[Rfam]
RNA sequence: ACAUCGGUUUAGCUCAGUGGUUUCUUCACUGCCUGAGACGUAGCUCUCUCUGCGCUCUCUGGGGUGCAGGAUUCAUCCACGGGCGCUGUCUGGCGUUUUA
Numbered sequence: 001a002c003a004u005c006g007g008u009u010u011a012g013c014u015c016a017g018u019g020g021u022u023u024c025u026u027c028a029c030u031g032c033c034u035g036a037g038a039c040g041u042a043g044c045u046c047u048c049u050c051u052g053c054g055c056u057c058u059c060u061g062g063g064g065u066g067c068a069g070g071a072u073u074c075a076u077c078c079a080c081g082g083g084c085g086c087u088g089u090c091u092g093g094c095g096u097u098u099u100a
Base pairs, nucleotide, nucleotide: 002095004093005092006091007090012084013083014082015081017080018079019078020077026071027070
Shown here is a 100-nucleotide sequence from Nothobranchius furzeri, a member of the family "Vault RNA".
A search with the family's covariance model found it, with a score of 49 bits.
This family of RNAs are found as part of the enigmatic vault ribonucleoprotein complex.